The record is an 83-nucleotide RNA sequence from Ornithorhynchus anatinus, which matches "mir-128 microRNA precursor family" in Rfam. Lineage of the source: Eukaryota > Opisthokonta > Dipnotetrapodomorpha > Prototheria > Ornithorhynchus.
RNA sequence: GGACAGCCGGAAGGGGGGCCGUUACACUGUAAGAGAGUGAGUACCAGGUCUCACAGUGAACCGGUCUCUUUCCCGACUGGAUC
Dot-bracket structure: .....(.(((....(((((((...((((((..(((..............)))))))))...)))))))....))).)......
Gene Ontology terms of the family: miRNA-mediated post-transcriptional gene silencing and RISC complex.